[Rfam]
Shown here is a 70-nucleotide RNA from Cyprinus carpio, a member of the family "mir-199 microRNA precursor family". About the family: This family consists of the microRNA (miRNA) precursor mir-199 which appears to be specific to humans. Animal miRNAs are transcribed as ~70nt precursors and subsequently processed by the Dicer enzyme to give a ~22nt product. In this case the mature sequence comes from the 3' arm of the precursor. The extents of the hairpin precursors are not generally known and are estimated based on hairpin prediction. The products are thought to have regulatory roles through complementarity to mRNA. The involvement of Dicer in miRNA processing suggests a relationship with the phenomenon of RNA interference. miRNAs are numbered based on the sequence of the mature RNA. Rfam 15.1 lists 1,828 matches to the family in 648 species. Its family is annotated with miRNA-mediated post-transcriptional gene silencing and RISC complex in the Gene Ontology.

RNA sequence: CGUCAUCCCAGUGUUCAGACUACCUGUUCAGGAUCAUACUGGUGUACAGUAGUCUGCACAUUGGUUAGAC
Dot-bracket structure: .......(((((((.(((((((.((((.((............)).))))))))))).)))))))......
For this family Rfam cites "miRNPs: a novel class of ribonucleoproteins containing numerous microRNAs" (Mourelatos et al., Genes Dev, 2002).